[Rfam]
RNA sequence: CCAUCACUUUUAAAAUUUAUUUAUUAAAAACGACCCAUUUCAACUUUAAUUUCAAAAACCGACCCAGUUGGUUGAAACUGGGUCGGUUUUUGAAAAAAAAAAUUUAAAACUUCACGGGAGUUCAACUCCCGUGAAGUUUUGUUA
Numbered sequence: 001c002c003a004u005c006a007c008u009u010u011u012a013a014a015a016u017u018u019a020u021u022u023a024u025u026a027a028a029a030a031c032g033a034c035c036c037a038u039u040u041c042a043a044c045u046u047u048a049a050u051u052u053c054a055a056a057a058a059c060c061g062a063c064c065c066a067g068u069u070g071g072u073u074g075a076a077a078c079u080g081g082g083u084c085g086g087u088u089u090u091u092g093a094a095a096a097a098a099a100a101a102a103u104u105u106a107a108a109a110c111u112u113c114a115c116g117g118g119a120g121u122u123c124a125a126c127u128c129c130c131g132u133g134a135a136g137u138u139u140u141g142u143u144a
Stems, first nucleotide, its partner, number of pairs: 008058003012052003059086011105141016
Notes
The record is a 144-nucleotide RNA, which matches "Histidine operon leader" in Rfam. Gene Ontology term of the family: histidine biosynthetic process. On this family, see Kolter and Yanofsky, Annu Rev Genet 1982: "Attenuation in amino acid biosynthetic operons". A search with the family's covariance model found it, with a score of 50 bits. Rfam's curators write: At least 6 amino acid operons are known to be regulated by attenuation. In each a leader sequence of 150-200 bp is found upstream of the first gene in the operon. This leader sequence can assume two different secondary structures known as the terminator and the anti-terminator structure. In each case the leader also codes for very short peptide sequence that is rich in the end product amino acid of the operon.